[Rfam]
A member of the RNA family "U12 minor spliceosomal RNA" from Cephus cinctus, 151 nucleotides long.
The organism belongs to Cephus, within Eukaryota.
The base pairs follow the family's consensus structure.
By type it is a spliceosomal small nuclear RNA.
A search with the family's covariance model found it, with a score of 112 bits.
RNA sequence: GUGCCUUAAACUAAUGAGUAAGGAAAAUAUAGAGCUUUGGUAACGCUUAGCUAUGCUAUGAAUUAAGCGACCGUAUUUUUGAAGAGGAACAGGUCGUCCCAUGGACUGCUCGGACUACUUUUUCGAGCGGUCAGGUGAAGCGAUCUACCUC
Number, nucleotide and partner (000 for none) at each position: 001g000002u000003g000004c023005c022006u021007u020008a019009a000010a000011c000012u000013a000014a000015u000016g000017a000018g000019u008020a007021a006022g005023g004024a000025a000026a000027a000028u000029a000030u000031a000032g000033a052034g051035c050036u049037u000038u000039g046040g000041u000042a000043a000044c000045g000046c039047u000048u000049a036050g035051c034052u033053a000054u070055g068056c067057u066058a000059u000060g000061a000062a000063u000064u000065a000066a057067g056068c055069g000070a054071c000072c000073g000074u000075a000076u000077u000078u000079u000080u000081g000082a000083a000084g151085a150086g149087g148088a000089a000090c000091a146092g145093g144094u143095c142096g141097u140098c000099c000100c135101a000102u000103g000104g132105a131106c130107u129108g128109c000110u126111c125112g124113g123114a122115c000116u000117a000118c000119u000120u000121u000122u114123u113124c112125g111126a110127g000128c108129g107130g106131u105132c104133a000134g000135g100136u000137g000138a000139a000140g097141c096142g095143a094144u093145c092146u091147a000148c087149c086150u085151c084